RNA sequence: UGCACCAUGUUGGGUUGCAUCAGUCAUGCCAAGUUAUGAAACCUAACACAAAGUGACUGAUGCAGGUUGACAUGACAUGU
Number, nucleotide and partner (000 for none) at each position: 001u000002g080003c079004a078005c000006c074007a073008u072009g071010u070011u069012g068013g067014g000015u065016u064017g063018c062019a061020u060021c059022a058023g057024u056025c055026a054027u053028g000029c000030c000031a000032a000033g047034u046035u045036a044037u000038g000039a000040a000041a000042c000043c000044u036045a035046a034047c033048a000049c000050a000051a000052a000053g027054u026055g025056a024057c023058u022059g021060a020061u019062g018063c017064a016065g015066g000067u013068u012069g011070a010071c009072a008073u007074g006075a000076c000077a000078u004079g003080u002
The family of this 80-nucleotide RNA sequence from Pelodiscus sinensis is "mir-1791 microRNA precursor family".
A search with the family's covariance model found it, with a score of 77 bits.
Its family is annotated with miRNA-mediated post-transcriptional gene silencing and RISC complex in the Gene Ontology.
Pairs were carried over by alignment from the consensus structure, which was predicted with RNAalifold.
Lineage of the source: Eukaryota > Opisthokonta > Amniota > Cryptodira > Pelodiscus.